[Rfam]
RNA sequence: GCGAUUCCUAUGAAGGUCUGCACUAAAGGCAGGUUUACUGCAGGUGCAGGCCGGAAGUCCUGAUCGC
Dot-bracket structure: (((((.........((((((((((.....(((.....)))..))))))))))..........)))))
Numbered sequence: 001g002c003g004a005u006u007c008c009u010a011u012g013a014a015g016g017u018c019u020g021c022a023c024u025a026a027a028g029g030c031a032g033g034u035u036u037a038c039u040g041c042a043g044g045u046g047c048a049g050g051c052c053g054g055a056a057g058u059c060c061u062g063a064u065c066g067c
Stems, first nucleotide, its partner, number of pairs: 001067005015052010030040003